[Rfam]
RNA: SAM-I/IV (S-adenosyl methionine) riboswitch aptamer
RNA sequence: ACACUGUAUUUUGAAUCACUUUGAUGUGAUACCAACCGAGAGGGGCACUCCACGGUGGUAAAACAAUACGGGAAUCCAAUCCAAAAUAAACGCAAACA
Numbered sequence: 001a002c003a004c005u006g007u008a009u010u011u012u013g014a015a016u017c018a019c020u021u022u023g024a025u026g027u028g029a030u031a032c033c034a035a036c037c038g039a040g041a042g043g044g045g046c047a048c049u050c051c052a053c054g055g056u057g058g059u060a061a062a063a064c065a066a067u068a069c070g071g072g073a074a075u076c077c078a079a080u081c082c083a084a085a086a087u088a089a090a091c092g093c094a095a096a097c098a
Base pairs, nucleotide, nucleotide: 006069007068008067009066010065015030016029017028018027019026031059032058033057036055037054038053040050041049044093071082072081073080